The family of this 180-nucleotide RNA sequence from Mycolicibacterium cosmeticum is "Actinobacteria sRNA Ms_IGR-5". Lineage of the source: Bacteria > Bacillati > Mycobacteriaceae > Mycobacterium > Mycobacterium (subgen. Mycolicibacterium).

[Rfam]
Nucleotides: 180
Base pairs, nucleotide, nucleotide: 014060015059016058017057018056019055062104063103064102065101066100067099069098070097072095074092075091076090123174124173125172126171127170128169129168130167131166132165133164134163135162136155137154138153139152140151141150
Number, partner (000 for none) and nucleotide at each position: 001000a002000c003000a004000c005000a006000g007000g008000g009000a010000a011000g012000g013000a014060g015059g016058u017057g018056g019055u020000c021000c022000g023000a024000c025000a026000a027000a028000u029000u030000g031000a032000g033000u034000g035000a036000c037000a038000u039000a040000c041000g042000g043000a044000c045000a046000u047000g048000u049000g050000a051000g052000g053000u054000g055019g056018c057017u058016g059015c060014u061000a062104g063103c064102u065101a066100g067099c068000a069098g070097c071000a072095c073000c074092a075091g076090g077000c078000g079000c080000g081000a082000g083000g084000a085000a086000u087000c088000c089000a090076c091075c092074u093000g094000c095072g096000a097070g098069c099067g100066c101065u102064g103063g104062c105000g106000a107000a108000u109000u110000c111000c112000g113000a114000g115000c116000a117000g118000c119000c120000a121000c122000c123174c124173g125172g126171c127170c128169c129168c130167c131166g132165a133164g134163c135162c136155c137154u138153u139152g140151g141150u142000u143000u144000u145000g146000u147000c148000c149000a150141a151140c152139c153138a154137g155136g156000a157000a158000u159000c160000a161000c162135g163134g164133c165132u166131c167130g168129g169128g170127g171126g172125c173124c174123g175000c176000c177000c178000c179000a180000u